The record is a 126-nucleotide RNA from Lactuca sativa, which matches "MIR403 microRNA precursor family" in Rfam. The source organism's lineage runs through Eukaryota, Embryophyta, Mesangiospermae, campanulids and Lactuca.
RNA sequence: GCUUAUUUUGUGUUUGUGCGUGAAGCUAACGAUGUAACCAGGUGGUUGAAUCGAUGCUGAUCUAUGAAUUAAACUGAUGCCGGAGGAUAUGUUCGUUAGAUUCACGCACAAACUCGUAAUACGUCU
Numbered sequence: 001g002c003u004u005a006u007u008u009u010g011u012g013u014u015u016g017u018g019c020g021u022g023a024a025g026c027u028a029a030c031g032a033u034g035u036a037a038c039c040a041g042g043u044g045g046u047u048g049a050a051u052c053g054a055u056g057c058u059g060a061u062c063u064a065u066g067a068a069u070u071a072a073a074c075u076g077a078u079g080c081c082g083g084a085g086g087a088u089a090u091g092u093u094c095g096u097u098a099g100a101u102u103c104a105c106g107c108a109c110a111a112a113c114u115c116g117u118a119a120u121a122c123g124u125c126u
Stems, first nucleotide, its partner, number of pairs: 001124002005120003012113013026099001028097003061084001